A member of the RNA family "Bacterial RNase P class B" from Nicoliella spurrieriana, 378 nucleotides long.
By type it is a ribozyme.
The family's consensus secondary structure is taken from published work.
From the family's description: Ribonuclease P (RNase P) is a ubiquitous endoribonuclease, found in archaea, bacteria and eukarya as well as chloroplasts and mitochondria. Its best characterised activity is the generation of mature 5'-ends of tRNAs by cleaving the 5'-leader elements of precursor-tRNAs. Cellular RNase Ps are ribonucleoproteins. RNA from bacterial RNase Ps retains its catalytic activity in the absence of the protein subunit, i.e. it is a ribozyme. Isolated eukaryotic and archaeal RNase P RNA has not been shown to retain its catalytic function, but is still essential for the catalytic activity of the holoenzyme. Although the archaeal and eukaryotic holoenzyme s have a much greater protein content than the bacterial ones, the RNA cores from all the three lineages are homologous -- helices corresponding to P1, P2, P3, P4, and P10/11 are common to all cellular RNase P RNAs. Yet, there is considerable sequence variation, particularly among the eukaryotic RNAs.
RNA sequence: AAUCCUGAGUAAUCGCGGCUGGUUCGUAUCAGCUGAGGAAAGUCCACUCUCGCACAGGCUGCGAUGUCUGUAGUGUUCGUGCUCGGCGAAAAAAUAAGCCGAGGCAUUACCAUUUGGUAAUGAUGGCGGAGAAACGAGCUAAUGCUUAGGCGAUGCUUUAAUACUCUGUAAAGUGCCACAGUGACGAAACAAUUAAAGAAAUUUAAUUGGUGGAACGCGGUAAACCCCUCGAGCGGGAAACCCAAACUACGGUAGGGGAGCUUCAUGUACGGAAAUUGAACCAAGCAUGGGGGAGAAAUUUUAUUUCUCAGAUAGAUGAUUACUACUCAAUUAAUUUGUCCUGAAAUUUUAAUUGAGCACAAAACAUGGCUUACAGGG
Numbered sequence: 001a002a003u004c005c006u007g008a009g010u011a012a013u014c015g016c017g018g019c020u021g022g023u024u025c026g027u028a029u030c031a032g033c034u035g036a037g038g039a040a041a042g043u044c045c046a047c048u049c050u051c052g053c054a055c056a057g058g059c060u061g062c063g064a065u066g067u068c069u070g071u072a073g074u075g076u077u078c079g080u081g082c083u084c085g086g087c088g089a090a091a092a093a094a095u096a097a098g099c100c101g102a103g104g105c106a107u108u109a110c111c112a113u114u115u116g117g118u119a120a121u122g123a124u125g126g127c128g129g130a131g132a133a134a135c136g137a138g139c140u141a142a143u144g145c146u147u148a149g150g151c152g153a154u155g156c157u158u159u160a161a162u163a164c165u166c167u168g169u170a171a172a173g174u175g176c177c178a179c180a181g182u183g184a185c186g187a188a189a190c191a192a193u194u195a196a197a198g199a200a201a202u203u204u205a206a207u208u209g210g211u212g213g214a215a216c217g218c219g220g221u222a223a224a225c226c227c228c229u230c231g232a233g234c235g236g237g238a239a240a241c242c243c244a245a246a247c248u249a250c251g252g253u254a255g256g257g258g259a260g261c262u263u264c265a266u267g268u269a270c271g272g273a274a275a276u277u278g279a280a281c282c283a284a285g286c287a288u289g290g291g292g293g294a295g296a297a298a299u300u301u302u303a304u305u306u307c308u309c310a311g312a313u314a315g316a317u318g319a320u321u322a323c324u325a326c327u328c329a330a331u332u333a334a335u336u337u338g339u340c341c342u343g344a345a346a347u348u349u350u351a352a353u354u355g356a357g358c359a360c361a362a363a364a365c366a367u368g369g370c371u372u373a374c375a376g377g378g
Base pairs, nucleotide, nucleotide: 004378005377006376007374008324009323010322011321012320013319014318016035017034018033019032020031021030040372041371042370044369045368046367049237050236051235052234053233054071055070056069057068058067059066077232078231079230081228082103083102084101085100086099087098104124105122106121107120108119109118110117125227126226128167129166130165131164136158137157138156139155143152144151145150173225174224175221176220177219190209191208192207193206194205195204196203197202241257242256243255261292262291263290264289265288266287267286293309294308295307296306297305298304326357327356328355329354330353331352332351333350334349